[Rfam]
RNA: small nucleolar RNA snoR114
RNA sequence: GAGCUGUGAUGACUAUUGCACAAAUUGUGAAGUUGGGUCUUCAUAGUCAUCUGAUUUAAAUGAUGAAAUGUAGUGUAUCUGAGCUC
Numbered sequence: 001g002a003g004c005u006g007u008g009a010u011g012a013c014u015a016u017u018g019c020a021c022a023a024a025u026u027g028u029g030a031a032g033u034u035g036g037g038u039c040u041u042c043a044u045a046g047u048c049a050u051c052u053g054a055u056u057u058a059a060a061u062g063a064u065g066a067a068a069u070g071u072a073g074u075g076u077a078u079c080u081g082a083g084c085u086c
Base pairs, nucleotide, nucleotide: 001086002085003084004083